The record is a 121-nucleotide RNA from candidate division Zixibacteria bacterium RBG-1, which matches "Molybdenum/Tungsten riboswitch aptamer (Moco RNA motif)" in Rfam. NCBI's taxonomy places the organism under Bacteria, Pseudomonadati, Candidatus Zixiibacteriota. The base pairs follow the family's consensus structure, which is taken from published work.

RNA sequence: UUUUUAAAAAAUCUCCGAGCUUUGGAUUCUGUUGCCUUGGUGGUAUGAGCCAAAGCCGAAAGGGCUAAGCCGGAAACGGCUUAACCUCCCGUGCUUGGAAAGGAGAUAAAUUGAAAAAUUU
Numbered sequence: 001u002u003u004u005u006a007a008a009a010a011a012u013c014u015c016c017g018a019g020c021u022u023u024g025g026a027u028u029c030u031g032u033u034g035c036c037u038u039g040g041u042g043g044u045a046u047g048a049g050c051c052a053a054a055g056c057c058g059a060a061a062g063g064g065c066u067a068a069g070c071c072g073g074a075a076a077c078g079g080c081u082u083a084a085c086c087u088c089c090c091g092u093g094c095u096u097g098g099a100a101a102g103g104a105g106a107u108a109a110a111u112u113g114a115a116a117a118a119u120u121u
Base pairs, nucleotide, nucleotide: 003115004114006112011107012106013105014104015103016102019056020055021054022053023052024051025050027049028048029047035042062087063086064085066083067082068081069080070079071078072077088098089097